[Rfam]
RNA sequence: UUAGCUGAUUAAAACCAUAGAUGUAACUAUUUUAACUGAGGAUGUAUAUGCAGGACAAAAUAAUUAAGGAAUUCUUCGUUUAUGAUUUCUAA
Numbered sequence: 001u002u003a004g005c006u007g008a009u010u011a012a013a014a015c016c017a018u019a020g021a022u023g024u025a026a027c028u029a030u031u032u033u034a035a036c037u038g039a040g041g042a043u044g045u046a047u048a049u050g051c052a053g054g055a056c057a058a059a060a061u062a063a064u065u066a067a068g069g070a071a072u073u074c075u076u077c078g079u080u081u082a083u084g085a086u087u088u089c090u091a092a
Base pairs, nucleotide, nucleotide: 001092002091003090004089